[Rfam]
RNA: Xanthine riboswitch aptamer (NMT1 RNA)
Organism: Halomonas sp. PA5
RNA sequence: UUGCGGAGUAGAAGCGGUCAGGGGCGGCGCCCCGGGACAUUGCUCUGAAG
Numbered sequence: 001u002u003g004c005g006g007a008g009u010a011g012a013a014g015c016g017g018u019c020a021g022g023g024g025c026g027g028c029g030c031c032c033c034g035g036g037a038c039a040u041u042g043c044u045c046u047g048a049a050g
Stems, first nucleotide, its partner, number of pairs: 005046006015035001018037002021033005